[Rfam]
RNA sequence: AGCGCAGAAGGACGAAAAGACCCCGGGACCUUUACUAUACCUUGGUAUUGUCGUUAGGUGUGGAUUGUGUAGCAUAGGCGGGAGACGUUGAUGCCGUGGCGCCAGCCAUGGUUGAGUCGCAAGGUGAAAUACCGCUCUGUCCAUAUUUGGCGUCUAACCUCGACGAGUGAGCCUCGUCAGGGACAGUGCCUGGCGGGUAGUUUAACUGGGGCGGUUGCCUCCCAAAGAGUAACGGAGGCGCUCAAAGGUCCGCUCAGCCCGGUUGGCAAUCGGGUGUCGAGUGCAAUCGCACAAGCGGGCUUGACUGUGAGACCGACGGGUCGAGCAGGGACGAAAGUCGGAGAUAGUGAUCCGGUGCCGGCGCACGGGCGCGGCAUCGCUCAACGGAUAAAAGGUACCCCGGGGAUAACAGGCUGAUCAUUCCCAAGAGUCCAUAUCGACGGGAUGGUUUGGCACCUCGAUGUCGGCUCGUCGCAUCCUGGGGCUGGAGCAGGUCCCAAGGGUUCGGCUGUUCGCCGAUUAAAGCGGCACGCGAGCUGGGUUCAGAACGUCGUGAGACAGUUUGGUCUCUAUCCUCUGCGCUCGUA
Numbered sequence: 001a002g003c004g005c006a007g008a009a010g011g012a013c014g015a016a017a018a019g020a021c022c023c024c025g026g027g028a029c030c031u032u033u034a035c036u037a038u039a040c041c042u043u044g045g046u047a048u049u050g051u052c053g054u055u056a057g058g059u060g061u062g063g064a065u066u067g068u069g070u071a072g073c074a075u076a077g078g079c080g081g082g083a084g085a086c087g088u089u090g091a092u093g094c095c096g097u098g099g100c101g102c103c104a105g106c107c108a109u110g111g112u113u114g115a116g117u118c119g120c121a122a123g124g125u126g127a128a129a130u131a132c133c134g135c136u137c138u139g140u141c142c143a144u145a146u147u148u149g150g151c152g153u154c155u156a157a158c159c160u161c162g163a164c165g166a167g168u169g170a171g172c173c174u175c176g177u178c179a180g181g182g183a184c185a186g187u188g189c190c191u192g193g194c195g196g197g198u199a200g201u202u203u204a205a206c207u208g209g210g211g212c213g214g215u216u217g218c219c220u221c222c223c224a225a226a227g228a229g230u231a232a233c234g235g236a237g238g239c240g241c242u243c244a245a246a247g248g249u250c251c252g253c254u255c256a257g258c259c260c261g262g263u264u265g266g267c268a269a270u271c272g273g274g275u276g277u278c279g280a281g282u283g284c285a286a287u288c289g290c291a292c293a294a295g296c297g298g299g300c301u302u303g304a305c306u307g308u309g310a311g312a313c314c315g316a317c318g319g320g321u322c323g324a325g326c327a328g329g330g331a332c333g334a335a336a337g338u339c340g341g342a343g344a345u346a347g348u349g350a351u352c353c354g355g356u357g358c359c360g361g362c363g364c365a366c367g368g369g370c371g372c373g374g375c376a377u378c379g380c381u382c383a384a385c386g387g388a389u390a391a392a393a394g395g396u397a398c399c400c401c402g403g404g405g406a407u408a409a410c411a412g413g414c415u416g417a418u419c420a421u422u423c424c425c426a427a428g429a430g431u432c433c434a435u436a437u438c439g440a441c442g443g444g445a446u447g448g449u450u451u452g453g454c455a456c457c458u459c460g461a462u463g464u465c466g467g468c469u470c471g472u473c474g475c476a477u478c479c480u481g482g483g484g485c486u487g488g489a490g491c492a493g494g495u496c497c498c499a500a501g502g503g504u505u506c507g508g509c510u511g512u513u514c515g516c517c518g519a520u521u522a523a524a525g526c527g528g529c530a531c532g533c534g535a536g537c538u539g540g541g542u543u544c545a546g547a548a549c550g551u552c553g554u555g556a557g558a559c560a561g562u563u564u565g566g567u568c569u570c571u572a573u574c575c576u577c578u579g580c581g582c583u584c585g586u587a
Stems, first nucleotide, its partner, number of pairs: 001583008010575003014570002022404006028396005034201004041193002044190004050154001052152014067137001077136005084118003093112008158181003162178006204216004217239006240385001242342002248300006254280002257275006281290002305328004311322003330339003353379007361372002413454003417451001418448007428438002465540001466538004470532001471529005478503002481498006505519005546564004550559003
The family of this 587-nucleotide part of an RNA from Bifidobacterium tsurumiense is "Bacterial large subunit ribosomal RNA". Its Rfam clan is "LSU clan". Taxonomically the source falls in Bifidobacterium (Bacteria, Bacillati, Actinomycetes, Bifidobacteriaceae).